Shown here is a 166-nucleotide part of an RNA from Fusarium acutatum, a member of the family "Ascomycota telomerase RNA".
The organism belongs to Fusarium fujikuroi species complex, within Eukaryota.
It is annotated as a non-coding RNA gene.
[Rfam]
RNA sequence: CAAGCCUGCAAAGAUCAGAAGGUCUGAACAGGUCCCUCAGAUCCGCCGAAAGGUUGAACUGAGAUGAAAGGGUGGUUUUUAUGGAUGUCUUUUGUCCACCCGUCAAAGCCCUCCAUCCCUCUCGCUAGCGAGAAAUUUGGAGAGGAAUCAAAAACUAGUCCUAGUU
Numbered sequence: 001c002a003a004g005c006c007u008g009c010a011a012a013g014a015u016c017a018g019a020a021g022g023u024c025u026g027a028a029c030a031g032g033u034c035c036c037u038c039a040g041a042u043c044c045g046c047c048g049a050a051a052g053g054u055u056g057a058a059c060u061g062a063g064a065u066g067a068a069a070g071g072g073u074g075g076u077u078u079u080u081a082u083g084g085a086u087g088u089c090u091u092u093u094g095u096c097c098a099c100c101c102g103u104c105a106a107a108g109c110c111c112u113c114c115a116u117c118c119c120u121c122u123c124g125c126u127a128g129c130g131a132g133a134a135a136u137u138u139g140g141a142g143a144g145g146a147a148u149c150a151a152a153a154a155c156u157a158g159u160c161c162u163a164g165u166u
Stems, first nucleotide, its partner, number of pairs: 007030002012025003016021001035066001036063005042057002047052001084160003087155002090153005109145002111142004120133005